[Rfam]
RNA sequence: GCCUGGGUAGCUCAGUUGGGAGAGCGUCAGACUGAAGAUCUGAAGGUCCCUGGUUCAAUCCCGGGUCUAGGCA
Numbered sequence: 001g002c003c004u005g006g007g008u009a010g011c012u013c014a015g016u017u018g019g020g021a022g023a024g025c026g027u028c029a030g031a032c033u034g035a036a037g038a039u040c041u042g043a044a045g046g047u048c049c050c051u052g053g054u055u056c057a058a059u060c061c062c063g064g065g066u067c068u069a070g071g072c073a
Stems, first nucleotide, its partner, number of pairs: 001072007010025004027043005049065005

The record is a 73-nucleotide RNA sequence from Oxytricha trifallax, which matches "tRNA" in Rfam. Lineage of the source: Eukaryota > Alveolata > Spirotrichea > Oxytrichidae > Oxytricha.